[Rfam]
RNA sequence: GGUCAUGAGUGCCAGCGCGAAGCCCCGGCUCGCUGGCCGGCAACCCUCCAACCGCGGUGGGGUGCCCCGGGUGAUGACCUGGCCGACACCAGCAGGUGUGGGCAAGCGCGGGUC
Numbered sequence: 001g002g003u004c005a006u007g008a009g010u011g012c013c014a015g016c017g018c019g020a021a022g023c024c025c026c027g028g029c030u031c032g033c034u035g036g037c038c039g040g041c042a043a044c045c046c047u048c049c050a051a052c053c054g055c056g057g058u059g060g061g062g063u064g065c066c067c068c069g070g071g072u073g074a075u076g077a078c079c080u081g082g083c084c085g086a087c088a089c090c091a092g093c094a095g096g097u098g099u100g101g102g103c104a105a106g107c108g109c110g111g112g113u114c
Base pairs, nucleotide, nucleotide: 001079002078003077004076009038011037012036013035014034015033016032021030022029039066040065041064044062045061046060048057049056082103083102084101086099087098088097089096090095
Dot-bracket structure: ((((....(.((((((....((......)).)))))))(((..(((.((......))..))).))).........))))..(((.(((((....))))).)))...........
The record is a 114-nucleotide RNA from Angustibacter sp. Root456, which matches "SAM (S-adenosyl methionine) riboswitch aptamer" in Rfam.
The family's consensus secondary structure is taken from published work.
Clan: SAM clan.
Rfam's curators write: SAM-IV is a mRNA element that regulates gene expression via direct sensing of S-adenosylmethionine (SAM or AdoMet). SAM-IV riboswitches share conserved nucleotide positions with the previously described SAM-I riboswitches sequence analysis and molecular recognition experiments suggest that SAM-I and SAM-IV riboswitches share similar ligand binding sites, but have different scaffolds.